[Rfam]
RNA sequence: GUGGCAGCGUGGUGGUGGUAUACGUGGUGCCACUUACUUGAACGUUUCAGUGACAUCACAUGCACAGCAACUUAAACUGCUAC
Numbered sequence: 001g002u003g004g005c006a007g008c009g010u011g012g013u014g015g016u017g018g019u020a021u022a023c024g025u026g027g028u029g030c031c032a033c034u035u036a037c038u039u040g041a042a043c044g045u046u047u048c049a050g051u052g053a054c055a056u057c058a059c060a061u062g063c064a065c066a067g068c069a070a071c072u073u074a075a076a077c078u079g080c081u082a083c
Stems, first nucleotide, its partner, number of pairs: 002082006015068002018065002021062002024059004029054001031052003
Overview: A member of the RNA family "mir-489 microRNA precursor family" from Heterocephalus glaber, 83 nucleotides long. Rfam links the family to the GO terms RISC complex and miRNA-mediated post-transcriptional gene silencing. The family's consensus secondary structure was predicted with RNAalifold.